[Rfam]
RNA sequence: AUUUGUAUUAGUUACAAACACAGGCCUUUUUGAAGACCCGAUGUAAAAUUUUUGACAACCUCACUUGUGUAGUGGGGCUU
Numbered sequence: 001a002u003u004u005g006u007a008u009u010a011g012u013u014a015c016a017a018a019c020a021c022a023g024g025c026c027u028u029u030u031u032g033a034a035g036a037c038c039c040g041a042u043g044u045a046a047a048a049u050u051u052u053u054g055a056c057a058a059c060c061u062c063a064c065u066u067g068u069g070u071a072g073u074g075g076g077g078c079u080u
Stems, first nucleotide, its partner, number of pairs: 023038002026035003057079001059077007